[Rfam]
RNA sequence: AACCGCAUCAGUUACUAGUGAUUGUUAAACUCAACACUAAUAACAUACCGAGUAAGCUAUCUUUUUUAAGGACAGGCCUCGCCCUUCGGGGAUAUCGAAAGAUACGGAGGAUCUUCGCGAUUGAGAUGCACUCAAAUUCCUGUUUUCUAGGAGUUUAAUUAGUCUCAACUGGUGCGGCUCCCAUA
Numbered sequence: 001a002a003c004c005g006c007a008u009c010a011g012u013u014a015c016u017a018g019u020g021a022u023u024g025u026u027a028a029a030c031u032c033a034a035c036a037c038u039a040a041u042a043a044c045a046u047a048c049c050g051a052g053u054a055a056g057c058u059a060u061c062u063u064u065u066u067u068a069a070g071g072a073c074a075g076g077c078c079u080c081g082c083c084c085u086u087c088g089g090g091g092a093u094a095u096c097g098a099a100a101g102a103u104a105c106g107g108a109g110g111a112u113c114u115u116c117g118c119g120a121u122u123g124a125g126a127u128g129c130a131c132u133c134a135a136a137u138u139c140c141u142g143u144u145u146u147c148u149a150g151g152a153g154u155u156u157a158a159u160u161a162g163u164c165u166c167a168a169c170u171g172g173u174g175c176g177g178c179u180c181c182c183a184u185a
Stems, first nucleotide, its partner, number of pairs: 056129002060126004066120002070116002077110004082091003094103003